The record is a 67-nucleotide RNA from Burkholderia glumae, which matches "SAH (S-adenosyl-L-homocysteine) riboswitch aptamer" in Rfam.
NCBI's taxonomy places the organism under Bacteria, Betaproteobacteria, Burkholderiales, Burkholderiaceae, Burkholderia.
RNA sequence: UUUCCGAGGAGCGUUGCGACGGGCACCGGCCCGCCAGGCUCGGAAAUCUUCACCAGGCGGUGGCCCG
Number, nucleotide and partner (000 for none) at each position: 001u046002u045003u044004c043005c042006g041007a040008g000009g000010a000011g000012c000013g000014u000015u000016g000017c000018g000019a000020c033021g032022g031023g030024c029025a000026c000027c000028g000029g024030c023031c022032c021033g020034c000035c000036a000037g000038g000039c000040u007041c006042g005043g004044a003045a002046a001047u000048c000049u000050u000051c000052a000053c000054c000055a000056g000057g000058c000059g000060g000061u000062g000063g000064c000065c000066c000067g000